[Rfam]
RNA sequence: GGCGAUAAACGGCAUGUGGAAUAAGCGUUGCGGACCCGGGGGCAGUGCCCGGCGUCUCCACCAGCUUCAGGCACCUGGGAUCGUCGGGUGUGCUUCUGGGGACGAAACAGGCUCGACGCGCGUGGUAAAGCCAUGUCUUUUGCCCGGCAUUGUACCGCCGUUAUCGGGCUAUAUCACAAGUGCCAACGAUAACAGCCGCGAGGCUGUGGCGCUCGCUGCCUAA
Numbered sequence: 001g002g003c004g005a006u007a008a009a010c011g012g013c014a015u016g017u018g019g020a021a022u023a024a025g026c027g028u029u030g031c032g033g034a035c036c037c038g039g040g041g042g043c044a045g046u047g048c049c050c051g052g053c054g055u056c057u058c059c060a061c062c063a064g065c066u067u068c069a070g071g072c073a074c075c076u077g078g079g080a081u082c083g084u085c086g087g088g089u090g091u092g093c094u095u096c097u098g099g100g101g102a103c104g105a106a107a108c109a110g111g112c113u114c115g116a117c118g119c120g121c122g123u124g125g126u127a128a129a130g131c132c133a134u135g136u137c138u139u140u141u142g143c144c145c146g147g148c149a150u151u152g153u154a155c156c157g158c159c160g161u162u163a164u165c166g167g168g169c170u171a172u173a174u175c176a177c178a179a180g181u182g183c184c185a186a187c188g189a190u191a192a193c194a195g196c197c198g199c200g201a202g203g204c205u206g207u208g209g210c211g212c213u214c215g216c217u218g219c220c221u222a223a
Stems, first nucleotide, its partner, number of pairs: 001144005014134003026122003030119003036052005053104007145160004
The family of this 223-nucleotide sequence from Teichococcus oryzae is "permuted transfer-messenger RNA".
It is annotated as a non-coding RNA gene.
NCBI's taxonomy places the organism under Bacteria, Alphaproteobacteria, Acetobacterales, Roseomonadaceae, Roseomonas.
The match comes from Rfam's covariance-model search (140 bits).